[Rfam]
RNA sequence: CCCUAGCCCUGAUAGAAGCGGUAUCCUUUUUUUGAGUUGAUUUUUCUUCAACUCAAGAAAAGAUACAAGCGGAUAGCAGGAAAUAGC
Numbered sequence: 001c002c003c004u005a006g007c008c009c010u011g012a013u014a015g016a017a018g019c020g021g022u023a024u025c026c027u028u029u030u031u032u033u034g035a036g037u038u039g040a041u042u043u044u045u046c047u048u049c050a051a052c053u054c055a056a057g058a059a060a061a062g063a064u065a066c067a068a069g070c071g072g073a074u075a076g077c078a079g080g081a082a083a084u085a086g087c
Base pairs, nucleotide, nucleotide: 009079010078011077013075014074018070019069023064024063025062029059030058031057032056033055034054035053036052037051038050039049040048
RNA: Flavo-1 RNA